This 80-nucleotide RNA sequence from Bagarius yarrelli belongs to the Rfam family "mir-203 microRNA precursor family".
Pairs were carried over by alignment from the consensus structure, which was predicted with RNAalifold.
On this family, see Lim et al., Science 2003: "Vertebrate microRNA genes".
Taxonomically the source falls in Bagarius (Eukaryota, Bilateria, Craniata, Actinopterygii).
A search with the family's covariance model found it, with a score of 73 bits.
RNA sequence: GUUUGCCUGGUCAAGUGGUCCUAAACAUUUCACAAUUUUUGGAUAGAACUGUUGAACUGUUAAGAACCACUGCACCCGAC
Numbered sequence: 001g002u003u004u005g006c007c008u009g010g011u012c013a014a015g016u017g018g019u020c021c022u023a024a025a026c027a028u029u030u031c032a033c034a035a036u037u038u039u040u041g042g043a044u045a046g047a048a049c050u051g052u053u054g055a056a057c058u059g060u061u062a063a064g065a066a067c068c069a070c071u072g073c074a075c076c077c078g079a080c
Stems, first nucleotide, its partner, number of pairs: 014071006021064002024061004029056004